[Rfam]
RNA sequence: AGGAGGAACAACCCUAGUGGUGGCGGCCAGCUCUGGAGCCCUGGAUUCAGCUCCUGCAGUAACAACGGCGCUCUUAGUAUGCAGGGCCUGGAUGCUCAGGGGCGAG
Numbered sequence: 001a002g003g004a005g006g007a008a009c010a011a012c013c014c015u016a017g018u019g020g021u022g023g024c025g026g027c028c029a030g031c032u033c034u035g036g037a038g039c040c041c042u043g044g045a046u047u048c049a050g051c052u053c054c055u056g057c058a059g060u061a062a063c064a065a066c067g068g069c070g071c072u073c074u075u076a077g078u079a080u081g082c083a084g085g086g087c088c089u090g091g092a093u094g095c096u097c098a099g100g101g102g103c104g105a106g
Stems, first nucleotide, its partner, number of pairs: 003097003007093001009090002012086003020078002023075001025074002029072003033068003041059003
Background:
mir-8834 microRNA precursor family: a 106-nucleotide RNA from Canis lupus. The family's consensus secondary structure was predicted with RNAalifold. Lineage of the source: Eukaryota > Vertebrata > Gnathostomata > Eutheria > Canis lupus. Rfam 15.1 lists 13,926 matches to the family in 17 species. Gene Ontology terms of the family: RISC complex and miRNA-mediated post-transcriptional gene silencing.